The family of this 87-nucleotide RNA sequence from Denticeps clupeoides is "Small nucleolar RNA SNORD60". The base pairs follow the family's consensus structure, which was predicted with PFOLD. The family's RNA type in Rfam is C/D-box small nucleolar RNA. Rfam 15.1 lists 825 matches to the family in 373 species. Its family is annotated with nucleolus and RNA processing in the Gene Ontology. It scores 60 bits against the family's covariance model. A reference for the family is Galardi et al. (2002), "Purified box C/D snoRNPs are able to reproduce site-specific 2'-O-methylation of target RNA in vitro", Mol Cell Biol.
[Rfam]
RNA sequence: AGCCAAUGAUUAUUCAUUUUUAUUUCUGACACCUCGUAUGAACUGCACUGCAGUUUGUGAUUUUUUUCCAAUUUUAAACUGAGGCUC
Numbered sequence: 001a002g003c004c005a006a007u008g009a010u011u012a013u014u015c016a017u018u019u020u021u022a023u024u025u026c027u028g029a030c031a032c033c034u035c036g037u038a039u040g041a042a043c044u045g046c047a048c049u050g051c052a053g054u055u056u057g058u059g060a061u062u063u064u065u066u067u068c069c070a071a072u073u074u075u076a077a078a079c080u081g082a083g084g085c086u087c
Stems, first nucleotide, its partner, number of pairs: 001086004042054005
Dot-bracket structure: ((((.....................................(((((...)))))............................)))).